Shown here is a 278-nucleotide sequence from Listeria monocytogenes, a member of the family "Listeria sRNA rliG". The sequence is in the family's curated seed alignment. By type it is a small RNA.

[Rfam]
RNA sequence: AGUGAGAAGUGAAGAUGAUUACAAAAAUAAAAUCUUAUAUUGAGUCUGCGCUCCACUUCUCAUUUAUAAUCUUAUGAUGAUAUAGCAGGAGAUUGCUAUGUUGCCCGGCAGAGGCUUUGUAUCUGGGCACUAGUCUCAACAGAUGACGACACUUCUGUUCAAUCUCAUAUCCUAUCCAUACUGGAUGUAAAACACGCAUGUGGCGCUGACUGGUGCGUUAACCAGUUUUUUAAAUAUAUAGCCCUUUCCAUCUGUUGAAAAUUGAGCAGGUGGUUUUU
Numbered sequence: 001a002g003u004g005a006g007a008a009g010u011g012a013a014g015a016u017g018a019u020u021a022c023a024a025a026a027a028u029a030a031a032a033u034c035u036u037a038u039a040u041u042g043a044g045u046c047u048g049c050g051c052u053c054c055a056c057u058u059c060u061c062a063u064u065u066a067u068a069a070u071c072u073u074a075u076g077a078u079g080a081u082a083u084a085g086c087a088g089g090a091g092a093u094u095g096c097u098a099u100g101u102u103g104c105c106c107g108g109c110a111g112a113g114g115c116u117u118u119g120u121a122u123c124u125g126g127g128c129a130c131u132a133g134u135c136u137c138a139a140c141a142g143a144u145g146a147c148g149a150c151a152c153u154u155c156u157g158u159u160c161a162a163u164c165u166c167a168u169a170u171c172c173u174a175u176c177c178a179u180a181c182u183g184g185a186u187g188u189a190a191a192a193c194a195c196g197c198a199u200g201u202g203g204c205g206c207u208g209a210c211u212g213g214u215g216c217g218u219u220a221a222c223c224a225g226u227u228u229u230u231u232a233a234a235u236a237u238a239u240a241g242c243c244c245u246u247u248c249c250a251u252c253u254g255u256u257g258a259a260a261a262u263u264g265a266g267c268a269g270g271u272g273g274u275u276u277u278u
Stems, first nucleotide, its partner, number of pairs: 029073002032070002036066002042061003047055002107168001110165002113163001133147002136143002148159004180226004185199004201220006248273009